[Rfam]
RNA sequence: CUCUUAUCUAGAGUGGCAGAGGGACUAGGCCCUGUGACGCCCGGCAACCUUCAAGUAACGACUUGAAAAGGUGCUAAUUCCUACAGAUCUCACCGAUCUGACAGAUAAGAG
Numbered sequence: 001c002u003c004u005u006a007u008c009u010a011g012a013g014u015g016g017c018a019g020a021g022g023g024a025c026u027a028g029g030c031c032c033u034g035u036g037a038c039g040c041c042c043g044g045c046a047a048c049c050u051u052c053a054a055g056u057a058a059c060g061a062c063u064u065g066a067a068a069a070g071g072u073g074c075u076a077a078u079u080c081c082u083a084c085a086g087a088u089c090u091c092a093c094c095g096a097u098c099u100g101a102c103a104g105a106u107a108a109g110a111g
Stems, first nucleotide, its partner, number of pairs: 001111008013042001015041003021032003026083004043075004048071002050067004079103001084100006
Shown here is a 111-nucleotide RNA from Halobacillus andaensis, a member of the family "SAM riboswitch aptamer (S box leader)".